A member of the RNA family "mir-72 microRNA precursor family" from Auanema sp. JU1783, 65 nucleotides long. The family's consensus secondary structure was predicted with RNAalifold. Its Rfam clan is "mir-31 microRNA precursor family".
[Rfam]
RNA sequence: GCUAGGCAAGAUGUUGGCAUAGCUGAGCUUAUGAAUUCCUCAGCGAUGCCACAUAGGGCCAAGCG
Numbered sequence: 001g002c003u004a005g006g007c008a009a010g011a012u013g014u015u016g017g018c019a020u021a022g023c024u025g026a027g028c029u030u031a032u033g034a035a036u037u038c039c040u041c042a043g044c045g046a047u048g049c050c051a052c053a054u055a056g057g058g059c060c061a062a063g064c065g
Stems, first nucleotide, its partner, number of pairs: 005060003011054004016050003022044005
The organism belongs to Auanema, within Eukaryota.
Rfam links the family to the GO terms RISC complex and miRNA-mediated post-transcriptional gene silencing.
A search with the family's covariance model found it, with a score of 69 bits.